[Rfam]
RNA sequence: GAAUGAAGAUAGAAAAAGGGCGUUGCGUAAACAACACCCACACAGAGCCGUUUAAGACGGUGGCUGAAUUUAUAGAAUCAUGA
Number, nucleotide and partner (000 for none) at each position: 001g000002a000003a000004u000005g000006a000007a000008g000009a000010u000011a000012g000013a000014a000015a000016a000017a000018g000019g000020g000021c000022g035023u034024u033025g032026c000027g000028u000029a000030a000031a000032c025033a024034a023035c022036a000037c000038c000039c000040a000041c000042a000043c000044a000045g000046a000047g061048c060049c059050g058051u057052u056053u000054a000055a000056g052057a051058c050059g049060g048061u047062g000063g000064c000065u000066g000067a000068a000069u000070u000071u000072a000073u000074a000075g000076a000077a000078u000079c000080a000081u000082g000083a000
RNA: RNA anti-toxin A